[Rfam]
RNA sequence: UGGCGGCACCAGGGGUGCUUGUUCUGUUUGCAUUAUUUGCAGACAAGAGCAGGCUGAGAUAGUCCCUUUGCACCUGAACAGGAUAAUGCCUGCGUAGGGAGUGUGCCAUGUUUUUAUG
Numbered sequence: 001u002g003g004c005g006g007c008a009c010c011a012g013g014g015g016u017g018c019u020u021g022u023u024c025u026g027u028u029u030g031c032a033u034u035a036u037u038u039g040c041a042g043a044c045a046a047g048a049g050c051a052g053g054c055u056g057a058g059a060u061a062g063u064c065c066c067u068u069u070g071c072a073c074c075u076g077a078a079c080a081g082g083a084u085a086a087u088g089c090c091u092g093c094g095u096a097g098g099g100a101g102u103g104u105g106c107c108a109u110g111u112u113u114u115u116a117u118g
Base pairs, nucleotide, nucleotide: 006106007105008104009103011067012066013065014064016061017054018053019052020051021050022049023048024047025046073098074097075096076095079092080091081090082089
Record summary
Shown here is a 118-nucleotide sequence, a member of the family "TPP riboswitch aptamer (THI element)".